[Rfam]
RNA sequence: CGCCAAGCCGGUGGCUCCGGAAGACGCCGGAGCCAAGUGCACAAGGGA
Numbered sequence: 001c002g003c004c005a006a007g008c009c010g011g012u013g014g015c016u017c018c019g020g021a022a023g024a025c026g027c028c029g030g031a032g033c034c035a036a037g038u039g040c041a042c043a044a045g046g047g048a
Base pairs, nucleotide, nucleotide: 013034014033015032016031017030018029019028020027
A member of the RNA family "raiA-hairpin RNA" from Streptomyces rapamycinicus, 48 nucleotides long.
By type it is a small RNA.
Taxonomically the source falls in Streptomyces rapamycinicus (Bacteria, Bacillati, Actinomycetes, Kitasatosporales).